This 207-nucleotide RNA from Desulfoscipio geothermicus belongs to the Rfam family "glmS glucosamine-6-phosphate activated ribozyme aptamer". Rfam describes the family as follows. This entry contains a glucosamine-6-phosphate activated ribozyme that is found in the mRNA for GlmS. GlmS is an enzyme that uses fructose-6-phosphate and glutamine to generate glucosamine-6-phosphate.

[Rfam]
RNA sequence: ACUGAAUGGCAAGCGCCGGAACCAGGCGCUCAAUGGGUUGACAUCAAUCGUAUUCUAUUAAAGUUUCUGGUUGUCAUUGAGUGCCGGGUUGACGAGGAGGGAGUUUAUCGAGUUUUUCGGCGGGUGCUCCCCGGUUUGGUCACGACCGUCAAAGGUACUACAAAACCUGCGGGUAACCGCGGGGACAAAGGGUGCCGGGUGGCCGGG
Numbered sequence: 001a002c003u004g005a006a007u008g009g010c011a012a013g014c015g016c017c018g019g020a021a022c023c024a025g026g027c028g029c030u031c032a033a034u035g036g037g038u039u040g041a042c043a044u045c046a047a048u049c050g051u052a053u054u055c056u057a058u059u060a061a062a063g064u065u066u067c068u069g070g071u072u073g074u075c076a077u078u079g080a081g082u083g084c085c086g087g088g089u090u091g092a093c094g095a096g097g098a099g100g101g102a103g104u105u106u107a108u109c110g111a112g113u114u115u116u117u118c119g120g121c122g123g124g125u126g127c128u129c130c131c132c133g134g135u136u137u138g139g140u141c142a143c144g145a146c147c148g149u150c151a152a153a154g155g156u157a158c159u160a161c162a163a164a165a166c167c168u169g170c171g172g173g174u175a176a177c178c179g180c181g182g183g184g185a186c187a188a189a190g191g192g193u194g195c196c197g198g199g200u201g202g203c204c205g206g207g
Base pairs, nucleotide, nucleotide: 020090021089022088023087025085026084027083029081030080031079032078033077034076035075036074099131100130101129102128103127108120109119110118111117132148133147134146135145136144154196155195156194157193158192166183167182168181169180170179171178172177
Notes: The organism belongs to Desulfoscipio geothermicus, within Bacteria.